[Rfam]
RNA: Small nucleolar RNA R44/J54/Z268 family
Organism: Corymbia citriodora
RNA sequence: UGUGCAAAUGACGAUAAAACAGACAGGGACAUCAGCACUCCUAUGGAGGAUGGUGACUACGUCUAGUUGGGAAUCUCUCUGAUGCAUU
Numbered sequence: 001u002g003u004g005c006a007a008a009u010g011a012c013g014a015u016a017a018a019a020c021a022g023a024c025a026g027g028g029a030c031a032u033c034a035g036c037a038c039u040c041c042u043a044u045g046g047a048g049g050a051u052g053g054u055g056a057c058u059a060c061g062u063c064u065a066g067u068u069g070g071g072a073a074u075c076u077c078u079c080u081g082a083u084g085c086a087u088u
Stems, first nucleotide, its partner, number of pairs: 002087005
Dot-bracket structure: .(((((............................................................................))))).